[Rfam]
Rfam assigns this 169-nucleotide RNA from Cyanomargarita calcarea to the family "Ribosomal protein L10 leader". A reference for the family is Zengel and Lindahl (1994), "Diverse mechanisms for regulating ribosomal protein synthesis in Escherichia coli", Prog Nucleic Acid Res Mol Biol. It is annotated as a cis-regulatory leader. From the family's description: This family is a putative r-protein leader autoregulatory structure found in B. subtilis and other low-GC Gram-positive bacteria. The base pairs follow the family's consensus structure, which was predicted with CMfinder. A search with the family's covariance model found it, with a score of 68 bits.
RNA sequence: CUUUGAAAUUAAAUAAAGCCGGAGACAGCAGGUGUUAAUAGCUUAAUAUCCUGCCGAGGUUUACACUUAUGCCUAAAUAACCACUUCUUCAGUGGUGAAAAUAAUUUGGCGUUAAGAGUAUAACUGGAUAAACCCCGGCUUCCUAUAGUCGGGGUUUGUUGUUUUUUAU
Numbered sequence: 001c002u003u004u005g006a007a008a009u010u011a012a013a014u015a016a017a018g019c020c021g022g023a024g025a026c027a028g029c030a031g032g033u034g035u036u037a038a039u040a041g042c043u044u045a046a047u048a049u050c051c052u053g054c055c056g057a058g059g060u061u062u063a064c065a066c067u068u069a070u071g072c073c074u075a076a077a078u079a080a081c082c083a084c085u086u087c088u089u090c091a092g093u094g095g096u097g098a099a100a101a102u103a104a105u106u107u108g109g110c111g112u113u114a115a116g117a118g119u120a121u122a123a124c125u126g127g128a129u130a131a132a133c134c135c136c137g138g139c140u141u142c143c144u145a146u147a148g149u150c151g152g153g154g155u156u157u158g159u160u161g162u163u164u165u166u167u168a169u
Stems, first nucleotide, its partner, number of pairs: 028054005034042003133154008